Source information
The family of this 380-nucleotide RNA sequence from Cladophialophora carrionii is "Nuclear RNase P". The family's consensus secondary structure is taken from published work. The match comes from Rfam's covariance-model search (48 bits). About the family: Ribonuclease P (RNase P) is a ubiquitous endoribonuclease, found in archaea, bacteria and eukarya as well as chloroplasts and mitochondria.
[Rfam]
RNA sequence: UCCGCUGCGUUCUCUGCUACAAACAACGAGAUGCUCCUGUUGUCAUUACAGUCGAGCCCUCGUUCUUCCCUUGCAGAUGAGAAAUUCGGAGUAAUCUUCAAUCUUCCACCUCUGCCUCAGAUCAUUAACGAUCCGAGGCACAAGGUACUGCCCGCGAGGGCCCGGCACGGUUCCGUGCUCGCGACUGGCAUCAGAAAUUUACAGGGCCUCAAGACCAGCACUCUCGUAGUGUUCAUAUCUUGAGGGAUUCCCUAUGGAAGAGCCGUCGCGAAGAUUGUUUGGGCGUGAAAGCGUACCUCACUUUAGUGCAAUCGCAGCGGAAAUCUACCAUUUCAAUAUCUGAGAUGGCUUGGUUUCAAUUCGAUUCCGAUUACUCUGGG
Dot-bracket structure: [.[..[[.....((((.........(((((............................)))))..........)))).........(((((....((((..................................................((((....))))..(((((......))))).((((..(((.............(((.............................................)))........))).)))))))).......................................]]..].]((((((..........................)))))).......)))))...........